The family of this 104-nucleotide RNA sequence from Pedobacter yulinensis is "SAM riboswitch aptamer (S box leader)".
It scores 82 bits against the family's covariance model.
Lineage of the source: Bacteria > Bacteroidota > Sphingobacteriales > Sphingobacteriaceae > Pedobacter.
RNA sequence: UAUUUAUCCAGAAAGACGGAGGGAAAGGCCCGGCGAUGUCUUAGCAACCCCAGCAAUGGUAGGUGCUAAAUCCUGCUUCACCAUGCGGUGAAGAAAGAUAAAGC
Numbered sequence: 001u002a003u004u005u006a007u008c009c010a011g012a013a014a015g016a017c018g019g020a021g022g023g024a025a026a027g028g029c030c031c032g033g034c035g036a037u038g039u040c041u042u043a044g045c046a047a048c049c050c051c052a053g054c055a056a057u058g059g060u061a062g063g064u065g066c067u068a069a070a071u072c073c074u075g076c077u078u079c080a081c082c083a084u085g086c087g088g089u090g091a092a093g094a095a096a097g098a099u100a101a102a103g104c
Stems, first nucleotide, its partner, number of pairs: 003102006013042005021031003026074003043067004048063002050059003071096001076093006